[Rfam]
RNA sequence: UUCACAUAUUUAGAGACUUUAACUUGCAAACUUGGUGGAUUUGGAGACUUCAACUUGCAAACUUAGUGGAUUUUGAGACUUCAACU
Number, nucleotide and partner (000 for none) at each position: 001u084002u083003c000004a081005c000006a000007u000008a000009u076010u075011u000012a073013g072014a071015g000016a000017c068018u000019u066020u065021a064022a000023c000024u000025u059026g058027c057028a056029a000030a000031c000032u053033u052034g051035g050036u000037g048038g000039a000040u000041u000042u000043g000044g000045a000046g000047a000048c037049u000050u035051c034052a033053a032054c000055u000056u028057g027058c026059a025060a000061a000062c000063u000064u021065a020066g019067u000068g017069g000070a000071u014072u013073u012074u000075g010076a009077g000078a000079c000080u000081u004082c000083a002084a001085c000086u000

MIR8024 microRNA precursor family: an 86-nucleotide sequence from Capsicum baccatum. A search with the family's covariance model found it, with a score of 64 bits. Its family is annotated with miRNA-mediated post-transcriptional gene silencing and RISC complex in the Gene Ontology. The organism belongs to Capsicum, within Eukaryota.